[Rfam]
RNA sequence: AUCUACAAUGGUAAUGGGUGAAUUUGUAGAAGGAUGAAAGUCAAAGAAUCCUUCUGGGAACUAACUUUUGGCCUUCAACAAGAAUUGUGAU
Number, nucleotide and partner (000 for none) at each position: 001a091002u090003c089004u000005a088006c087007a086008a085009u084010g000011g000012u077013a000014a075015u000016g074017g073018g072019u071020g000021a069022a068023u060024u059025u058026g000027u056028a055029g054030a053031a052032g051033g050034a049035u048036g000037a000038a000039a000040g000041u000042c000043a000044a000045a000046g000047a000048a035049u034050c033051c032052u031053u030054c029055u028056g027057g000058g025059a024060a023061c000062u000063a000064a000065c000066u000067u000068u022069u021070g000071g019072c018073c017074u016075u014076c000077a012078a000079c000080a000081a000082g000083a000084a009085u008086u007087g006088u005089g003090a002091u001